[Rfam]
RNA sequence: UAAAGCUAGGUCUGUGGUUGAAAGUCGAUGCCAGUCGCAGGCAAAACGAUCCACGUAACCUAGGCAAAGUUCUAGUGAGCAUGGUGCGGUAUAGAUGUUAGUCCUGCCAGUAUGUAACUGAGAGUAUUAGUAGUGAGAGGUUAAAUCCGGGUAGCAAAAGUUCCAGCAGGCGAGUGUGGGGGCAAAGACCAGGUCAGCUAGCUUUA
Numbered sequence: 001u002a003a004a005g006c007u008a009g010g011u012c013u014g015u016g017g018u019u020g021a022a023a024g025u026c027g028a029u030g031c032c033a034g035u036c037g038c039a040g041g042c043a044a045a046a047c048g049a050u051c052c053a054c055g056u057a058a059c060c061u062a063g064g065c066a067a068a069g070u071u072c073u074a075g076u077g078a079g080c081a082u083g084g085u086g087c088g089g090u091a092u093a094g095a096u097g098u099u100a101g102u103c104c105u106g107c108c109a110g111u112a113u114g115u116a117a118c119u120g121a122g123a124g125u126a127u128u129a130g131u132a133g134u135g136a137g138a139g140g141u142u143a144a145a146u147c148c149g150g151g152u153a154g155c156a157a158a159a160g161u162u163c164c165a166g167c168a169g170g171c172g173a174g175u176g177u178g179g180g181g182g183c184a185a186a187g188a189c190c191a192g193g194u195c196a197g198c199u200a201g202c203u204u205u206a
Stems, first nucleotide, its partner, number of pairs: 001206009012197003015191005028177003031041001034090006050084002058076002062073003082184001103170005108120004124163001126161002133155002139148002
Rfam assigns this 206-nucleotide sequence from Clostridium vincentii to the family "raiA RNA". The organism belongs to Clostridium, within Bacteria. The family's consensus secondary structure is taken from published work.